[Rfam]
RNA sequence: GGGUCCGGGGGUUGUGGGCCUCCGGAGGUCAGCGCGGGUGGUCGGGCCGCCACCCG
Dot-bracket structure: ....((((((((.....)))))))).........((((.(((......))).))))
RNA: nhaA-I RNA